[Rfam]
A member of the RNA family "Small nucleolar RNA SNORA11" from Galemys pyrenaicus, 126 nucleotides long. About the family: U107 (SNORA11) is a member of the H/ACA class of snoRNAs that guide the sites of modification of uridines to pseudouridines. The match comes from Rfam's covariance-model search (67 bits). Rfam links the family to the GO terms RNA processing and nucleolus.
RNA sequence: AGGGUAUGCUCAGAGCAGGGUUCUGGAAGAAUUGCUCCUCUGUUUAUAACACAUCCAAAAGGAACUUGAAUUUACUCUUCAGAGGUGGCAGGAUACCUUGGCCUUCCUAUGACAUCAUGUACUAUA
Numbered sequence: 001a002g003g004g005u006a007u008g009c010u011c012a013g014a015g016c017a018g019g020g021u022u023c024u025g026g027a028a029g030a031a032u033u034g035c036u037c038c039u040c041u042g043u044u045u046a047u048a049a050c051a052c053a054u055c056c057a058a059a060a061g062g063a064a065c066u067u068g069a070a071u072u073u074a075c076u077c078u079u080c081a082g083a084g085g086u087g088g089c090a091g092g093a094u095a096c097c098u099u100g101g102c103c104u105u106c107c108u109a110u111g112a113c114a115u116c117a118u119g120u121a122c123u124a125u126a
Stems, first nucleotide, its partner, number of pairs: 002056004007051002013045008023034001070118002076112002081108002084104002090098003